[Rfam]
Nucleotides: 108
Base pairs, nucleotide, nucleotide: 003105004104006102007101009099010098011097012096013095014094017091018090019089020088021087023085024084025083026082029081030080031079
Number, partner (000 for none) and nucleotide at each position: 001000c002000g003105a004104a005000u006102g007101c008000c009099c010098g011097c012096c013095u014094g015000u016000c017091a018090u019089u020088u021087u022000g023085c024084u025083c026082g027000a028000a029081c030080c031079a032000g033000a034000g035000u036000u037000a038000u039000u040000c041000u042000u043000g044000g045000c046000g047000u048000c049000a050000u051000c052000c053000a054000u055000c056000u057000u058000c059000u060000c061000g062000a063000g064000g065000g066000a067000u068000g069000u070000u071000u072000g073000c074000u075000a076000g077000g078000u079031u080030g081029g082026u083025g084024a085023g086000c087021a088020a089019a090018g091017u092000u093000u094014c095013a096012g097011g098010u099009g100000u101007g102006c103000u104004u105003u106000g107000g108000c

This 108-nucleotide RNA from Taenia asiatica belongs to the Rfam family "mir-87 microRNA precursor family". The match comes from Rfam's covariance-model search (54 bits). The source organism's lineage runs through Eukaryota, Protostomia, Neodermata, Eucestoda and Taenia. For this family Rfam cites "Evolution, biogenesis, expression, and target predictions of a substantially expanded set of Drosophila microRNAs" (Ruby et al., Genome Res, 2007).